[Rfam]
RNA: SAM riboswitch aptamer (S box leader)
Organism: Oceanobacillus profundus
RNA sequence: AUCUUAUCACGAGAGGUGGAGGGACAUGGCCCAAAGAAUCCUCGGCAACAGGUUCAUUUAAGAAUACUGUGCUAAUUCCAUCAAGCAGACUGCUUGGAAGAUAAGAA
Numbered sequence: 001a002u003c004u005u006a007u008c009a010c011g012a013g014a015g016g017u018g019g020a021g022g023g024a025c026a027u028g029g030c031c032c033a034a035a036g037a038a039u040c041c042u043c044g045g046c047a048a049c050a051g052g053u054u055c056a057u058u059u060a061a062g063a064a065u066a067c068u069g070u071g072c073u074a075a076u077u078c079c080a081u082c083a084a085g086c087a088g089a090c091u092g093c094u095u096g097g098a099a100g101a102u103a104a105g106a107a
Stems, first nucleotide, its partner, number of pairs: 002106007013043004021032003026081004044073004049069002051065001053063002077099001082096006